[Rfam]
RNA sequence: UGUUGUCCACUGCCCUUUUUCUGUUGUACUACUGGACUGUUGUGUAAAAGCAGUGCAAUAUUAAAAGGGCAUUGGCGGAGG
Numbered sequence: 001u002g003u004u005g006u007c008c009a010c011u012g013c014c015c016u017u018u019u020u021c022u023g024u025u026g027u028a029c030u031a032c033u034g035g036a037c038u039g040u041u042g043u044g045u046a047a048a049a050g051c052a053g054u055g056c057a058a059u060a061u062u063a064a065a066a067g068g069g070c071a072u073u074g075g076c077g078g079a080g081g
Base pairs, nucleotide, nucleotide: 003080007075008074009073012070013069014068015067016066017065018064019063022060023059024058025057026056027055028054029053030052
The record is an 81-nucleotide sequence from Denticeps clupeoides, which matches "mir-130 microRNA precursor family" in Rfam. A reference for the family is Houbaviy et al. (2003), "Embryonic stem cell-specific MicroRNAs", Dev Cell. Its family is annotated with RISC complex and miRNA-mediated post-transcriptional gene silencing in the Gene Ontology.